The record is an 89-nucleotide RNA from Vigna radiata, which matches "mir-393 microRNA precursor family" in Rfam.
RNA sequence: GGUGGACACUUCCAAAGGGAUCGCAUUGAUCUAAGUCUUGCAUUGCUUUUCACUGAUUUCGAUCAUGCCAUCCCUUUGGAAUUUUCCAU
Numbered sequence: 001g002g003u004g005g006a007c008a009c010u011u012c013c014a015a016a017g018g019g020a021u022c023g024c025a026u027u028g029a030u031c032u033a034a035g036u037c038u039u040g041c042a043u044u045g046c047u048u049u050u051c052a053c054u055g056a057u058u059u060c061g062a063u064c065a066u067g068c069c070a071u072c073c074c075u076u077u078g079g080a081a082u083u084u085u086c087c088a089u
Base pairs, nucleotide, nucleotide: 002089003088004087005086006085008083010081011080012079013078014077015076016075017074018073019072020071021070023068024067025066026065028064029063030062031061
The pairing is the family consensus, mapped onto this sequence. For this family Rfam cites "Role of microRNAs and other sRNAs of plants in their changing environments" (Kruszka et al., J Plant Physiol, 2012). A search with the family's covariance model found it, with a score of 84 bits.